Notes: This 75-nucleotide sequence belongs to the Rfam family "L13-Bacteroidia ribosomal protein leader". By type it is a cis-regulatory leader. The sequence is in the family's curated seed alignment. The literature on the family includes a 2020 paper in BMC Microbiol by Eckert and Weinberg, "Discovery of 20 novel ribosomal leader candidates in bacteria and archaea".
RNA sequence: GGGGAAAGACUUAGAAUCCCCAUGGGUGAUGUGUGUUAAUAGUUAGCGUUUGGCCGCGCUGACGGUUAGUGAAUC
Numbered sequence: 001g002g003g004g005a006a007a008g009a010c011u012u013a014g015a016a017u018c019c020c021c022a023u024g025g026g027u028g029a030u031g032u033g034u035g036u037u038a039a040u041a042g043u044u045a046g047c048g049u050u051u052g053g054c055c056g057c058g059c060u061g062a063c064g065g066u067u068a069g070u071g072a073a074u075c
Stems, first nucleotide, its partner, number of pairs: 001021005036069005042063008